The family of this 359-nucleotide part of an RNA from a halophilic archaeon is "Archaeal large subunit ribosomal RNA". The base pairs follow the family's consensus structure, which is taken from published work.
RNA sequence: CGGGAGCAACCGACGUUAGGGAAUUCGGCAAGUUAGUCCCGUAAGUUCGCGAUAAGGGAUGCCUGCCCCGGAUAGGGGCAGGUCGCAGUGACUCGGACGCUCCGACUGUCUAGUAACAACAUAGGUGACCGCAAAUCCGCAAGGACUCGUACGGUCACUGAAUCCUGCCCAGUGCAGGUAUCUGAAAACCCGGUACAACGGGGCGAAGGACCUGUUAACGGCGGGGGUAACUAUGACCCUCUUAAGGUAGCGUAGUACCUUGCCGCUUCAGUAGCGGCUUGCAUGAAUGGAUCAACGAGAGCGUCACUGUCCCAACGUUGGGCCCGGUGAACUGUACGUUCCAGUGCGGAGUCUGGAGA
Numbered sequence: 001c002g003g004g005a006g007c008a009a010c011c012g013a014c015g016u017u018a019g020g021g022a023a024u025u026c027g028g029c030a031a032g033u034u035a036g037u038c039c040c041g042u043a044a045g046u047u048c049g050c051g052a053u054a055a056g057g058g059a060u061g062c063c064u065g066c067c068c069c070g071g072a073u074a075g076g077g078g079c080a081g082g083u084c085g086c087a088g089u090g091a092c093u094c095g096g097a098c099g100c101u102c103c104g105a106c107u108g109u110c111u112a113g114u115a116a117c118a119a120c121a122u123a124g125g126u127g128a129c130c131g132c133a134a135a136u137c138c139g140c141a142a143g144g145a146c147u148c149g150u151a152c153g154g155u156c157a158c159u160g161a162a163u164c165c166u167g168c169c170c171a172g173u174g175c176a177g178g179u180a181u182c183u184g185a186a187a188a189c190c191c192g193g194u195a196c197a198a199c200g201g202g203g204c205g206a207a208g209g210a211c212c213u214g215u216u217a218a219c220g221g222c223g224g225g226g227g228u229a230a231c232u233a234u235g236a237c238c239c240u241c242u243u244a245a246g247g248u249a250g251c252g253u254a255g256u257a258c259c260u261u262g263c264c265g266c267u268u269c270a271g272u273a274g275c276g277g278c279u280u281g282c283a284u285g286a287a288u289g290g291a292u293c294a295a296c297g298a299g300a301g302c303g304u305c306a307c308u309g310u311c312c313c314a315a316c317g318u319u320g321g322g323c324c325c326g327g328u329g330a331a332c333u334g335u336a337c338g339u340u341c342c343a344g345u346g347c348g349g350a351g352u353c354u355g356g357a358g359a
Base pairs, nucleotide, nucleotide: 001326002325003324004323010321011320012319013318014317015316016315017314019312020311021310036060037059038058039057040056045050061083062082063081064080065079066078067077068076069075084088096305097304098303099302100301101300102299103297104296107121108120109119124159125158126157127156128155129154130153131152132149136145137144138143162292163291164290165289167222168221169220172219173218174215175214176213177212178211181210182209183208189202190201191200192199223241224240225239226238227237228236242246262278263277264276265275266274267273340357341356342355343354344353